SAM riboswitch aptamer (S box leader): a 110-nucleotide RNA sequence from Marinithermus hydrothermalis. The family's consensus secondary structure is taken from published work. NCBI's taxonomy places the organism under Bacteria, Thermotogati, Thermales, Thermaceae, Marinithermus hydrothermalis. Gene Ontology term of the family: regulation of gene expression. Rfam describes the family as follows. The SAM riboswitch is found upstream of a number of genes which code for proteins involved in methionine or cysteine biosynthesis in Gram-positive bacteria.
RNA sequence: CUCUUAUCCAGAGCGGUGGAGGGACCCGGCCCUGUGAAGCCGCGGCAACCGGUGGGCGCGUGCCCACGUCCGGUGCCAACUCCGGCCUGCGCAAGCGGGGGAGAUAAGAG
Numbered sequence: 001c002u003c004u005u006a007u008c009c010a011g012a013g014c015g016g017u018g019g020a021g022g023g024a025c026c027c028g029g030c031c032c033u034g035u036g037a038a039g040c041c042g043c044g045g046c047a048a049c050c051g052g053u054g055g056g057c058g059c060g061u062g063c064c065c066a067c068g069u070c071c072g073g074u075g076c077c078a079a080c081u082c083c084g085g086c087c088u089g090c091g092c093a094a095g096c097g098g099g100g101g102a103g104a105u106a107a108g109a110g
Stems, first nucleotide, its partner, number of pairs: 001110008013043005021032003026085004044077004049073002051070004081102001086099005